[Rfam]
RNA sequence: CAAUUCUAACCGCUUAAUUUCCUAAUUACAGGAAAACGGGGGAACCAACAAAACGAUUUGAAAUACGGUGUGAGAGCCGUAUGAUAAGUCGUUUGGGGUGAAUCCCGAGGUGCAUGCCAGACCGCGCCCGGGUAGGGUGACUCUCACCAUCCGAAUCCGUCAGCUAACCUCGUAAACGUUGGGCAGUACGAAC
Numbered sequence: 001c002a003a004u005u006c007u008a009a010c011c012g013c014u015u016a017a018u019u020u021c022c023u024a025a026u027u028a029c030a031g032g033a034a035a036a037c038g039g040g041g042g043a044a045c046c047a048a049c050a051a052a053a054c055g056a057u058u059u060g061a062a063a064u065a066c067g068g069u070g071u072g073a074g075a076g077c078c079g080u081a082u083g084a085u086a087a088g089u090c091g092u093u094u095g096g097g098g099u100g101a102a103u104c105c106c107g108a109g110g111u112g113c114a115u116g117c118c119a120g121a122c123c124g125c126g127c128c129c130g131g132g133u134a135g136g137g138u139g140a141c142u143c144u145c146a147c148c149a150u151c152c153g154a155a156u157c158c159g160u161c162a163g164c165u166a167a168c169c170u171c172g173u174a175a176a177c178g179u180u181g182g183g184c185a186g187u188a189c190g191a192a193c
Stems, first nucleotide, its partner, number of pairs: 011178002014175001018035006036173006046095002096158003104132004135152004
RNA: c-di-AMP riboswitch aptamer (ydaO/yuaA leader)
Organism: Paenibacillus foliorum